[Rfam]
RNA sequence: UACCGAUAACGGCAAACCCGCUCGAAAGACGGGGGCGCAAAGCUUCAGGCCUAAAGGACGGAUUCUGUCCCAUGGUAGCUGAGCCGCCGAA
Numbered sequence: 001u002a003c004c005g006a007u008a009a010c011g012g013c014a015a016a017c018c019c020g021c022u023c024g025a026a027a028g029a030c031g032g033g034g035g036c037g038c039a040a041a042g043c044u045u046c047a048g049g050c051c052u053a054a055a056g057g058a059c060g061g062a063u064u065c066u067g068u069c070c071c072a073u074g075g076u077a078g079c080u081g082a083g084c085c086g087c088c089g090a091a
Base pairs, nucleotide, nucleotide: 012038013037017033018032019031020030022029023028042084043083044082046081047080048079049076050075051074056070057069058068059067
The record is a 91-nucleotide RNA sequence from Cohnella sp. CIP 111063, which matches "c-di-GMP-I riboswitch aptamer" in Rfam. A search with the family's covariance model found it, with a score of 74 bits.